[Rfam]
RNA sequence: AGAGGUUGAGGCCUUAGUAGAGGAGCUCAUGGCUCAGCCCUGUCAAGAUUAAAAAGGAAUCUGCAAAUUCUGCU
Numbered sequence: 001a002g003a004g005g006u007u008g009a010g011g012c013c014u015u016a017g018u019a020g021a022g023g024a025g026c027u028c029a030u031g032g033c034u035c036a037g038c039c040c041u042g043u044c045a046a047g048a049u050u051a052a053a054a055a056g057g058a059a060u061c062u063g064c065a066a067a068u069u070c071u072g073c074u
Base pairs, nucleotide, nucleotide: 008040010039011038012037016074017073018072019071020070021069022068023035024034025033044063045062047061048060049059050058
RNA: Mammalian CPEB3 ribozyme
Organism: Crocodylus porosus